Nucleotides: 085
Stems, first nucleotide, its partner, number of pairs: 034066002040061001041058001043056005
Number, partner (000 for none) and nucleotide at each position: 001000u002000a003000u004000a005000u006000c007000u008000a009000a010000a011000a012000c013000a014000a015000c016000g017000a018000a019000a020000g021000c022000c023000c024000u025000g026000c027000c028000u029000c030000u031000c032000u033000u034066u035065c036000a037000u038000c039000u040061u041058u042000a043056c044055g045054g046053c047052u048000c049000c050000u051000a052047g053046g054045c055044c056043g057000c058041g059000c060000c061040a062000u063000g064000g065035g066034a067000a068000u069000u070000a071000g072000c073000u074000u075000a076000u077000a078000a079000a080000a081000a082000c083000c084000a085000a
This 85-nucleotide sequence from Schinkia azotoformans belongs to the Rfam family "BsrC". NCBI's taxonomy places the organism under Bacteria, Bacillota, Bacilli, Bacillaceae, Schinkia azotoformans. The match comes from Rfam's covariance-model search (77 bits). Pairs were carried over by alignment from the consensus structure, which was predicted with CMfinder. The 301 nucleotide sequence from Kouji Nakamura has been trimmed to a highly conserved ~85 nucleotide long core to form this family. By type it is a small RNA. A reference for the family is Saito et al. (2008), "Novel small RNA-encoding genes in the intergenic regions of Bacillus subtilis", Gene.